[Rfam]
RNA sequence: CCAGUGUUUAGACUAUCUGUUCAGGACUCCCAAAUUGUACAGUAGUCUGCACAUUGGUU
Numbered sequence: 001c002c003a004g005u006g007u008u009u010a011g012a013c014u015a016u017c018u019g020u021u022c023a024g025g026a027c028u029c030c031c032a033a034a035u036u037g038u039a040c041a042g043u044a045g046u047c048u049g050c051a052c053a054u055u056g057g058u059u
Base pairs, nucleotide, nucleotide: 001057002056003055004054005053006052007051009049010048011047012046013045014044015043017042018041019040020039022037023036
Shown here is a 59-nucleotide RNA sequence from Canis lupus, a member of the family "mir-199 microRNA precursor family". Its family is annotated with RISC complex and miRNA-mediated post-transcriptional gene silencing in the Gene Ontology. From the family's description: This family consists of the microRNA (miRNA) precursor mir-199 which appears to be specific to humans. Animal miRNAs are transcribed as ~70nt precursors and subsequently processed by the Dicer enzyme to give a ~22nt product. On this family, see Mourelatos et al., Genes Dev 2002: "miRNPs: a novel class of ribonucleoproteins containing numerous microRNAs". The family's consensus secondary structure was predicted with RNAalifold. It is one of the family's seed sequences.